[Rfam]
RNA: traJ-II RNA
Organism: Duganella sp. Leaf126
RNA sequence: GGGCAGGAUAGGUGAUGUGGGCCUACACGUGAACGUGUAUUCCUCCAUCACAACUCCUUAUUCGCACUUCGUGCUCAACGGAAACCUGAUCUGCCAGGCC
Numbered sequence: 001g002g003g004c005a006g007g008a009u010a011g012g013u014g015a016u017g018u019g020g021g022c023c024u025a026c027a028c029g030u031g032a033a034c035g036u037g038u039a040u041u042c043c044u045c046c047a048u049c050a051c052a053a054c055u056c057c058u059u060a061u062u063c064g065c066a067c068u069u070c071g072u073g074c075u076c077a078a079c080g081g082a083a084a085c086c087u088g089a090u091c092u093g094c095c096a097g098g099c100c
Base pairs, nucleotide, nucleotide: 001091002090004088005087006086007085009083012051013050014049015048016047017046019044020043021042024039025038026037027036028035029034055082056081057080064074065073066072067071